[Rfam]
RNA sequence: GGCCUCAAGUGAUGCAGAAAUACCCAGGGAGGUCCAUGACCGCAAUGGGAUGUAUUCGUACUGUCUGAUGGGGCC
Numbered sequence: 001g002g003c004c005u006c007a008a009g010u011g012a013u014g015c016a017g018a019a020a021u022a023c024c025c026a027g028g029g030a031g032g033u034c035c036a037u038g039a040c041c042g043c044a045a046u047g048g049g050a051u052g053u054a055u056u057c058g059u060a061c062u063g064u065c066u067g068a069u070g071g072g073g074c075c
Stems, first nucleotide, its partner, number of pairs: 001075007011065004019056005024049002027046001032041001